[Rfam]
RNA sequence: UGCAUAUGAUGUUUUCUCACGAUGGUCUUCCUAGCCUAUCUGGUGUUGACGAUAUUGCCUUUUGGCGUUGCUGAUGCAGUCCA
Numbered sequence: 001u002g003c004a005u006a007u008g009a010u011g012u013u014u015u016c017u018c019a020c021g022a023u024g025g026u027c028u029u030c031c032u033a034g035c036c037u038a039u040c041u042g043g044u045g046u047u048g049a050c051g052a053u054a055u056u057g058c059c060u061u062u063u064g065g066c067g068u069u070g071c072u073g074a075u076g077c078a079g080u081c082c083a
Stems, first nucleotide, its partner, number of pairs: 001078004

Source information: Small nucleolar RNA SNORD35: an 83-nucleotide sequence from Gadus morhua. For this family Rfam cites "Intron-encoded, antisense small nucleolar RNAs: the characterization of nine novel species points to their direct role as guides for the 2'-O-ribose methylation of rRNAs" (Nicoloso et al., J Mol Biol, 1996). Pairs were carried over by alignment from the consensus structure, which was predicted with PFOLD. Rfam 15.1 lists 1,842 matches to the family in 634 species. Its Rfam clan is "SNORD35 clan". The family's RNA type in Rfam is C/D-box small nucleolar RNA. Rfam's curators write: U35 is a C/D box snoRNA located in intron 6 of ribosomal protein L13A and intron 3 of ribosomal protein S11 in humans and at homologous positions in mouse and chicken ribosomal protein genes. The organism belongs to Gadus, within Eukaryota.